The family of this 109-nucleotide RNA from Enterococcus saccharolyticus is "Enterococcus sRNA 68 (Lacto-3 RNA)".
Pairs were carried over by alignment from the consensus structure, which is taken from published work.
RNA sequence: UGCGAUGAGCCGAGACGGCUAGCUGAUGCUAGUCAACUCAAACAGAGGCACACCGAGGAAACUCAACCUGCCGGAUUGCAGGGUGUCGGAUGAUUGUUUUGUGGAGAAU
Numbered sequence: 001u002g003c004g005a006u007g008a009g010c011c012g013a014g015a016c017g018g019c020u021a022g023c024u025g026a027u028g029c030u031a032g033u034c035a036a037c038u039c040a041a042a043c044a045g046a047g048g049c050a051c052a053c054c055g056a057g058g059a060a061a062c063u064c065a066a067c068c069u070g071c072c073g074g075a076u077u078g079c080a081g082g083g084u085g086u087c088g089g090a091u092g093a094u095u096g097u098u099u100u101g102u103g104g105a106g107a108a109u
Stems, first nucleotide, its partner, number of pairs: 017034007047087005067082005096109005
Background
A reference for the family is Innocenti et al. (2015), "Whole-genome mapping of 5' RNA ends in bacteria by tagged sequencing: a comprehensive view in Enterococcus faecalis", RNA. The match comes from Rfam's covariance-model search (58 bits).